[Rfam]
RNA sequence: AUUGCCCCUGCCUGCCGGGCUUAAAAUGCAGGAUAGGCCGUGCGCGGAGUGGCCGCGCGUUUACAAGUAAAAUCUGGCUGAAAAAGGAGAAU
Numbered sequence: 001a002u003u004g005c006c007c008c009u010g011c012c013u014g015c016c017g018g019g020c021u022u023a024a025a026a027u028g029c030a031g032g033a034u035a036g037g038c039c040g041u042g043c044g045c046g047g048a049g050u051g052g053c054c055g056c057g058c059g060u061u062u063a064c065a066a067g068u069a070a071a072a073u074c075u076g077g078c079u080g081a082a083a084a085a086g087g088a089g090a091a092u
Stems, first nucleotide, its partner, number of pairs: 005019003011032004036079004042058005

The family of this 92-nucleotide RNA sequence is "GP20-a RNA". The family's RNA type in Rfam is cis-regulatory element.